[Rfam]
RNA sequence: GACCUGCAUCAAGAGCCGGGAGUGAUCCCGGCACCAACCUGCUGCUCCAGCAAGGUGGUAGCCCACGACGGGCGAUGCGGCUGAAACAGGCAACCAAAGGAGAUUAG
Numbered sequence: 001g002a003c004c005u006g007c008a009u010c011a012a013g014a015g016c017c018g019g020g021a022g023u024g025a026u027c028c029c030g031g032c033a034c035c036a037a038c039c040u041g042c043u044g045c046u047c048c049a050g051c052a053a054g055g056u057g058g059u060a061g062c063c064c065a066c067g068a069c070g071g072g073c074g075a076u077g078c079g080g081c082u083g084a085a086a087c088a089g090g091c092a093a094c095c096a097a098a099g100g101a102g103a104u105u106a107g
Stems, first nucleotide, its partner, number of pairs: 006078005015032001017031001019029002033059003038055003041051003046102001048100001080091003

Rfam assigns this 107-nucleotide RNA sequence from Aliiruegeria lutimaris to the family "SAM-I/IV (S-adenosyl methionine) riboswitch aptamer". A reference for the family is Weinberg et al. (2008), "The aptamer core of SAM-IV riboswitches mimics the ligand-binding site of SAM-I riboswitches", RNA. Its Rfam clan is "SAM clan". It scores 61 bits against the family's covariance model. NCBI's taxonomy places the organism under Bacteria, Pseudomonadati, Pseudomonadota, Roseobacteraceae, Aliiruegeria. Its family is annotated with S-adenosylmethionine metabolic process and regulation of gene expression in the Gene Ontology.